Rfam assigns this 144-nucleotide sequence from Priestia koreensis to the family "ylbH leader". A search with the family's covariance model found it, with a score of 96 bits. Gene Ontology term of the family: regulation of gene expression. Taxonomically the source falls in Priestia (Bacteria, Bacillati, Bacillota, Caryophanales).
RNA sequence: AUUAAAAAAACCUAUAACCAUCAGGUUAUAGGGCCCCUCUUAUAUUGAUUUGAAUGACACGAGCACGCAAAUCAAGUCAAGAAGGCAAAGGGAGAGGAGAAACCGGAGGAAGAACUUAUGGGGAAACGUAAGUCUUCUCCGCGG
Numbered sequence: 001a002u003u004a005a006a007a008a009a010a011c012c013u014a015u016a017a018c019c020a021u022c023a024g025g026u027u028a029u030a031g032g033g034c035c036c037c038u039c040u041u042a043u044a045u046u047g048a049u050u051u052g053a054a055u056g057a058c059a060c061g062a063g064c065a066c067g068c069a070a071a072u073c074a075a076g077u078c079a080a081g082a083a084g085g086c087a088a089a090g091g092g093a094g095a096g097g098a099g100a101a102a103c104c105g106g107a108g109g110a111a112g113a114a115c116u117u118a119u120g121g122g123g124a125a126a127c128g129u130a131a132g133u134c135u136u137c138u139c140c141g142c143g144g
Base pairs, nucleotide, nucleotide: 011032012031013030014029015028016027017026018025019024037092038091039090040089041088046079047078048077049076050075051074052073053072104141105140106139107138109137110136111135112134114133115132116131117130118129